A member of the RNA family "Small Cajal body-specific RNA 7" from Chlorocebus sabaeus, 333 nucleotides long. The organism belongs to Chlorocebus, within Eukaryota. The pairing is the family consensus, mapped onto this sequence. Its family is annotated with nucleolus and RNA processing in the Gene Ontology.
Nucleotides: 333
Stems, first nucleotide, its partner, number of pairs: 002331003203235007212225005
Number, partner (000 for none) and nucleotide at each position: 001000c002331g003330g004329a005000a006000a007000u008000g009000a010000u011000g012000a013000a014000a015000u016000a017000g018000a019000g020000a021000u022000a023000a024000u025000u026000g027000g028000g029000u030000g031000u032000u033000g034000a035000a036000u037000g038000u039000u040000g041000u042000a043000u044000g045000a046000c047000u048000g049000g050000a051000a052000a053000u054000u055000u056000u057000u058000a059000a060000u061000a062000u063000g064000u065000a066000u067000g068000u069000u070000a071000c072000a073000u074000a075000a076000u077000u078000c079000u080000u081000a082000c083000a084000a085000g086000u087000u088000u089000a090000g091000u092000g093000u094000u095000u096000u097000a098000u099000a100000g101000g102000u103000a104000c105000u106000u107000a108000a109000u110000a111000g112000a113000g114000u115000a116000u117000a118000g119000u120000g121000u122000g123000u124000a125000u126000g127000c128000a129000u130000g131000c132000g133000u134000g135000u136000g137000u138000g139000c140000u141000u142000g143000u144000g145000g146000u147000g148000g149000c150000u151000a152000u153000g154000g155000a156000a157000a158000g159000g160000g161000g162000g163000c164000a165000c166000u167000g168000a169000c170000u171000g172000g173000u174000g175000a176000u177000g178000c179000u180000g181000a182000u183000a184000u185000u186000g187000g188000a189000g190000u191000g192000c193000a194000u195000c196000u197000g198000a199000g200000g201000c202000c203235g204234u205233u206232g207231u208230a209229g210000a211000u212225a213224u214223a215222a216221c217000a218000u219000g220000g221216g222215u223214u224213g225212u226000u227000g228000a229209u230208u231207a232206c233205a234204a235203c236000a237000u238000u239000g240000c241000c242000a243000g244000u245000g246000a247000u248000u249000a250000u251000u252000a253000c254000c255000c256000a257000a258000g259000a260000a261000c262000a263000g264000c265000u266000c267000a268000c269000c270000u271000a272000a273000c274000u275000a276000g277000c278000c279000c280000g281000g282000c283000a284000c285000c286000c287000u288000a289000a290000a291000a292000u293000c294000u295000c296000u297000a298000a299000c300000a301000g302000g303000u304000u305000c306000a307000u308000u309000a310000a311000a312000a313000u314000g315000g316000u317000c318000c319000u320000g321000u322000g323000a324000u325000c326000u327000g328000a329004u330003c331002c332000a333000a